About this RNA: A member of the RNA family "SAM-I/IV (S-adenosyl methionine) riboswitch aptamer", 104 nucleotides long. The sequence is in the family's curated seed alignment.
RNA sequence: AUCAAGCAUCCAGAGUCGGAUUCUCCGACGCCAACCUGCCCUCCCGGGCAAGGUGGACGCCUCCAAGGCGAUGCGGCCGAUUUACGGCAACGAAACGGGAGCAG
Dot-bracket structure: .....(((((....((((((...)))))).((..((((((.[[[[[))).))).)).............))))).((((.....)))).......]]]]]....
Rfam 15.1 lists 567 matches to the family in 508 species.
Pairs were carried over by alignment from the consensus structure, which is taken from published work.